This 113-nucleotide sequence from Peterkaempfera bronchialis belongs to the Rfam family "Streptomyces RNA 4115".
The organism belongs to Peterkaempfera, within Bacteria.
The literature on the family includes a 2011 paper in RNA Biol by Vockenhuber et al., "Deep sequencing-based identification of small non-coding RNAs in Streptomyces coelicolor".
The match comes from Rfam's covariance-model search (75 bits).
About the family: Identified by deep sequencing of transcriptome at the end of exponential growth phase. Sequencing size consistent with notrthern blot size. Streptomyces specific.

[Rfam]
RNA sequence: GCGUGGGUCGGCCCAUCGUCCGAGGACCCGGUGGGCCGGGGGACACCGCCGCCUCAUUCCCCGCGGGCGGCGGAUCGGCUCGGGAGGGCGUGCCGACGCCCUCCCGGGCUGUG
Dot-bracket structure: ((...(((((((((((((..........))))))))))(....).(((((((((..........))))))))))))(((((((((((((((....))))))))))))))))).